This 565-nucleotide part of an RNA from Gossypium aridum belongs to the Rfam family "Eukaryotic large subunit ribosomal RNA".
RNA sequence: AUCAGCGGGUAAAGAAGACCCUAUUGAGCUUGACUCUAGUCCAACGUUGUGAAAUGACUUGAGAGGUGUAAGAUAAGUGGGUGCUCUCGGAUGAAAUUGAAAUACCACUACUUUUAACAUUAUUUUACUUAUUCUGUGAAUCAAAGACGGGGGACGGCCCCUCUUUUUGGACCCAAGGUCAGCUUCGGAGGUGGCACAUUUGUUAAAAGGUAACACAGGUGUCCUAAGAUGAGUUCAACAAGAACAAAAAUCUUGUGUGGAACAAAAAGGUAAAAGCUCGUUUAAUUCUGAUUCCCAGUACGAAUACGAACCAUGAAAGCGUGGCCUAUCAAUCCUUUAGACCUUCGAAAUUUGAAGCUAGAGGUGUCAAAAAACUUACCACAGGAUAAUAAGCUUGUGGCAACCAAGCGUUCAUAGUGACAUUGUUUUUUGAUCCUUCGGUGUUAGCUCUUCCUAUCAUUAUGAAACAAAAUUCACUAAGUGUUGGAUUGUUCACCCACCAAUAAGGAACGUGAACUGGGUUUAGACCAUCGUGAGACAGAUUAGUUUUAUCCUACUGAUGGCC
Numbered sequence: 001a002u003c004a005g006c007g008g009g010u011a012a013a014g015a016a017g018a019c020c021c022u023a024u025u026g027a028g029c030u031u032g033a034c035u036c037u038a039g040u041c042c043a044a045c046g047u048u049g050u051g052a053a054a055u056g057a058c059u060u061g062a063g064a065g066g067u068g069u070a071a072g073a074u075a076a077g078u079g080g081g082u083g084c085u086c087u088c089g090g091a092u093g094a095a096a097u098u099g100a101a102a103u104a105c106c107a108c109u110a111c112u113u114u115u116a117a118c119a120u121u122a123u124u125u126u127a128c129u130u131a132u133u134c135u136g137u138g139a140a141u142c143a144a145a146g147a148c149g150g151g152g153g154a155c156g157g158c159c160c161c162u163c164u165u166u167u168u169g170g171a172c173c174c175a176a177g178g179u180c181a182g183c184u185u186c187g188g189a190g191g192u193g194g195c196a197c198a199u200u201u202g203u204u205a206a207a208a209g210g211u212a213a214c215a216c217a218g219g220u221g222u223c224c225u226a227a228g229a230u231g232a233g234u235u236c237a238a239c240a241a242g243a244a245c246a247a248a249a250a251u252c253u254u255g256u257g258u259g260g261a262a263c264a265a266a267a268a269g270g271u272a273a274a275a276g277c278u279c280g281u282u283u284a285a286u287u288c289u290g291a292u293u294c295c296c297a298g299u300a301c302g303a304a305u306a307c308g309a310a311c312c313a314u315g316a317a318a319g320c321g322u323g324g325c326c327u328a329u330c331a332a333u334c335c336u337u338u339a340g341a342c343c344u345u346c347g348a349a350a351u352u353u354g355a356a357g358c359u360a361g362a363g364g365u366g367u368c369a370a371a372a373a374a375c376u377u378a379c380c381a382c383a384g385g386a387u388a389a390u391a392a393g394c395u396u397g398u399g400g401c402a403a404c405c406a407a408g409c410g411u412u413c414a415u416a417g418u419g420a421c422a423u424u425g426u427u428u429u430u431u432g433a434u435c436c437u438u439c440g441g442u443g444u445u446a447g448c449u450c451u452u453c454c455u456a457u458c459a460u461u462a463u464g465a466a467a468c469a470a471a472a473u474u475c476a477c478u479a480a481g482u483g484u485u486g487g488a489u490u491g492u493u494c495a496c497c498c499a500c501c502a503a504u505a506a507g508g509a510a511c512g513u514g515a516a517c518u519g520g521g522u523u524u525a526g527a528c529c530a531u532c533g534u535g536a537g538a539c540a541g542a543u544u545a546g547u548u549u550u551a552u553c554c555u556a557c558u559g560a561u562g563g564c565c
Stems, first nucleotide, its partner, number of pairs: 001561005008555002012550002020385003025381002027377002030374002034190003041182001044179002049128009059117007076109005083092001132171003136167001198220006223324002229281006235261002238256006262271002286310003291305004312321001314319001335363006343357004393434001395432001397431001399427005408418002445520001446518002449515001450512001451509003455505001458483002463476004485499003489495001526544002529541001531538002

About this RNA:
It scores 2355 bits against the family's covariance model.